This 111-nucleotide RNA sequence from Lentihominibacter hominis belongs to the Rfam family "FMN riboswitch aptamer (RFN element)". The family's consensus secondary structure is taken from published work. Taxonomically the source falls in Lentihominibacter (Bacteria, Bacillati, Peptostreptococcales, Anaerovoracaceae). It scores 77 bits against the family's covariance model.
RNA sequence: ACCUUUCUUCGGAAAUGAGUUUUUACUCUACUGGCGGUACAGCCCGCGAGCAAUAAGCUAAUUCGGUUUGAUUCCGAAGCCAACAGACAGUCUGGAUGGGAGAAGAAGGCU
Dot-bracket structure: ..((((((((......(((......))).[[((((((....[[))))..((.....))...(((((.......)))))]])).(((...]]))).......))))))))..